[Rfam]
RNA sequence: GCAGCAUAGUCGGGAGAGCCCGGUCCACCAGAACCGGCGCCGAAGGAGCAACCGCCCCGGAAACUCUCAGGCCCACGAACCGGCUAAGCUGA
Numbered sequence: 001g002c003a004g005c006a007u008a009g010u011c012g013g014g015a016g017a018g019c020c021c022g023g024u025c026c027a028c029c030a031g032a033a034c035c036g037g038c039g040c041c042g043a044a045g046g047a048g049c050a051a052c053c054g055c056c057c058c059g060g061a062a063a064c065u066c067u068c069a070g071g072c073c074c075a076c077g078a079a080c081c082g083g084c085u086a087a088g089c090u091g092a
Stems, first nucleotide, its partner, number of pairs: 007086007020037004039072003042068002046066003052060002
The family of this 92-nucleotide RNA from Pseudoduganella ginsengisoli is "Glycine riboswitch aptamer".
From the family's description: This family represents the bacterial glycine riboswitch.
It scores 62 bits against the family's covariance model.